Rfam assigns this 66-nucleotide sequence from Bacillus licheniformis to the family "Bacillaceae-1 RNA". Rfam's curators put it in the seed alignment. The base pairs follow the family's consensus structure, which is taken from published work. Rfam classes the family as a small RNA.

RNA sequence: GAGGAAGGAUCGGCGGCUAACCGCCAGGCGUCCUGCCUGAACGCCGCCGUAAUCACCUCCUGUGAA
Numbered sequence: 001g002a003g004g005a006a007g008g009a010u011c012g013g014c015g016g017c018u019a020a021c022c023g024c025c026a027g028g029c030g031u032c033c034u035g036c037c038u039g040a041a042c043g044c045c046g047c048c049g050u051a052a053u054c055a056c057c058u059c060c061u062g063u064g065a066a
Stems, first nucleotide, its partner, number of pairs: 011049007025039005053065004